RNA sequence: AACCUGAUGUUGGUUAAUGCUACAUCAACAAGGUAAAGAUAAUCCUUUGGAGUAAACAUGAGCGAUAAAAUUAUUCACCUGACCGAU
Numbered sequence: 001a002a003c004c005u006g007a008u009g010u011u012g013g014u015u016a017a018u019g020c021u022a023c024a025u026c027a028a029c030a031a032g033g034u035a036a037a038g039a040u041a042a043u044c045c046u047u048u049g050g051a052g053u054a055a056a057c058a059u060g061a062g063c064g065a066u067a068a069a070a071u072u073a074u075u076c077a078c079c080u081g082a083c084c085g086a087u
Stems, first nucleotide, its partner, number of pairs: 008067005014061003021054003025050003030047004071086002075082002
Shown here is an 87-nucleotide RNA from Rahnella aceris, a member of the family "TrxA 5' UTR thermometer". The source organism's lineage runs through Bacteria, Pseudomonadati, Enterobacterales, Yersiniaceae and Rahnella. Pairs were carried over by alignment from the consensus structure. Involved in protection against oxidative stress.